[Rfam]
RNA sequence: AAACGUAUGUUUUAAAUAAAGCAUGAAAACAAAAUUAAUUGCAUGAAGUUCUUGAUAAAUUUAGACACAAAGUGUUAAUUCAAGAUAAUGUGCAGCCAAGUAAACAUUUGUAUUCCUGAGUGAAGCUCAAGUGUUUAAAGGUUCAACGACUAAUAAAACAAAACGCACAUAUAAAUGAUGCUAUUGUUUUUCAAAUUUUGUAUCACAAUAUAUCGCAUAUUGUGAUAAUGAUAUAGUCUGACCAAUAAUGAAAAUUAUUG
Dot-bracket structure: .(((....))).................(((((.((...((((((....(((((..........................)))))...))))))((.....((...((((.................))))..)).....))...[.[[[[[.........................................)).))))).(((((((((.....)))))))))........]]]]]].....(((((....)))))..
A member of the RNA family "Group I catalytic intron" from Aspergillus cristatus, 260 nucleotides long. The match comes from Rfam's covariance-model search (52 bits). On this family, see Cech, Annu Rev Biochem 1990: "Self-splicing of group I introns". The source organism's lineage runs through Eukaryota, Fungi, saccharomyceta, Eurotiomycetidae and Aspergillus subgen. Aspergillus. Gene Ontology term of the family: Group I intron splicing. Pairs were carried over by alignment from the consensus structure, which is taken from published work. About the family: Group I catalytic introns are large self-splicing ribozymes. They catalyse their own excision from mRNA, tRNA and rRNA precursors in a wide range of organisms.